The record is a 69-nucleotide sequence from Streptomyces ruber, which matches "ASpks TB sRNA" in Rfam. The base pairs follow the family's consensus structure, which is taken from published work. The literature on the family includes a 2009 paper in Mol Microbiol by Arnvig and Young, "Identification of small RNAs in Mycobacterium tuberculosis".
[Rfam]
RNA sequence: CUUCAGAGAGCCCAGCAGCAGCGGCUUCUCGCGCUCCUGCCCGUACGUCGCGAGCAGGGCCUGGGCCUC
Numbered sequence: 001c002u003u004c005a006g007a008g009a010g011c012c013c014a015g016c017a018g019c020a021g022c023g024g025c026u027u028c029u030c031g032c033g034c035u036c037c038u039g040c041c042c043g044u045a046c047g048u049c050g051c052g053a054g055c056a057g058g059g060c061c062u063g064g065g066c067c068u069c
Base pairs, nucleotide, nucleotide: 014026015025016024028065029064030063032059037054038053041050043048